RNA sequence: CUCUUAUUUAGAGUGGCGGAGAGUUAAGGCUCUAUGAAGUCACGGCAACCCCUUUGUGGAAGGUGCCAAUCUGAGCGAGUAAUCGAACAAUAAGAG
Numbered sequence: 001c002u003c004u005u006a007u008u009u010a011g012a013g014u015g016g017c018g019g020a021g022a023g024u025u026a027a028g029g030c031u032c033u034a035u036g037a038a039g040u041c042a043c044g045g046c047a048a049c050c051c052c053u054u055u056g057u058g059g060a061a062g063g064u065g066c067c068a069a070u071c072u073g074a075g076c077g078a079g080u081a082a083u084c085g086a087a088c089a090a091u092a093a094g095a096g
Stems, first nucleotide, its partner, number of pairs: 001096008013043005021032003029072001044067004049063002051059002076085003
RNA: SAM riboswitch aptamer (S box leader)